[Rfam]
RNA sequence: ACCCUAAAUCUGGGGGCCAUAGCAAGAGCAUUCAUGUUGUGGCCCCUGUCAGACUGCCAAAUUUGUGAAUGCUACU
Numbered sequence: 001a002c003c004c005u006a007a008a009u010c011u012g013g014g015g016g017c018c019a020u021a022g023c024a025a026g027a028g029c030a031u032u033c034a035u036g037u038u039g040u041g042g043c044c045c046c047u048g049u050c051a052g053a054c055u056g057c058c059a060a061a062u063u064u065g066u067g068a069a070u071g072c073u074a075c076u
Stems, first nucleotide, its partner, number of pairs: 013046006021076002024073001027070001028040003050065004

Rfam assigns this 76-nucleotide RNA sequence from Sphenodon punctatus to the family "Mammalian CPEB3 ribozyme". The base pairs follow the family's consensus structure, which is taken from published work. Gene Ontology term of the family: RNA nuclease activity. The match comes from Rfam's covariance-model search (57 bits). Taxonomically the source falls in Sphenodon (Eukaryota, Metazoa, Vertebrata, Sauropsida).